[Rfam]
RNA sequence: AUUUAUCACUAGGGGUGCCAUAUUGCUUUGCGGUAUGGCUGAGAUCACACCCUCUGAACUUGAUCUGGUUUAAACCAGUGUAAGGAAAGUGAAAUCUUGUGAUC
Numbered sequence: 001a002u003u004u005a006u007c008a009c010u011a012g013g014g015g016u017g018c019c020a021u022a023u024u025g026c027u028u029u030g031c032g033g034u035a036u037g038g039c040u041g042a043g044a045u046c047a048c049a050c051c052c053u054c055u056g057a058a059c060u061u062g063a064u065c066u067g068g069u070u071u072a073a074a075c076c077a078g079u080g081u082a083a084g085g086a087a088a089g090u091g092a093a094a095u096c097u098u099g100u101g102a103u104c
Base pairs, nucleotide, nucleotide: 006092007091008090009089010088011053012052013051014050016047017039018038019037020036021035022034023033024032025031059084060083061082062081065078066077067076068075
Rfam assigns this 104-nucleotide RNA from Prochlorococcus marinus to the family "TPP riboswitch aptamer (THI element)". Gene Ontology term of the family: thiamine pyrophosphate binding.